[Rfam]
RNA: S4-Flavobacteria ribosomal protein leader
Organism: Nonlabens spongiae
RNA sequence: GACUAUCGAAGGAUAUUGACCUGAAUUCAUAGUAC
Numbered sequence: 001g002a003c004u005a006u007c008g009a010a011g012g013a014u015a016u017u018g019a020c021c022u023g024a025a026u027u028c029a030u031a032g033u034a035c
Stems, first nucleotide, its partner, number of pairs: 001035001002033005008028001010022003